mraW RNA: a 120-nucleotide sequence from Arthrobacter subterraneus. Rfam classes the family as a cis-regulatory element. Taxonomically the source falls in Arthrobacter (Bacteria, Bacillati, Actinomycetota, Actinomycetes). The match comes from Rfam's covariance-model search (55 bits).

[Rfam]
RNA sequence: ACCAAGCUCUUCGAUGAGACCUCCAGCCGCCCAGCGGCCGAGUUUCCUGACUCACCUUCCCCGGAGUCAGGCAGCCGGGCCCCGGAGCGGAUGGGGAUCUGACCGAAGAACCGAGGCACC
Dot-bracket structure: .........((((.(..((.(((((.((((((.(((((.......((((((((..........))))))))..))))....).)).)))).))))).))..).)))).............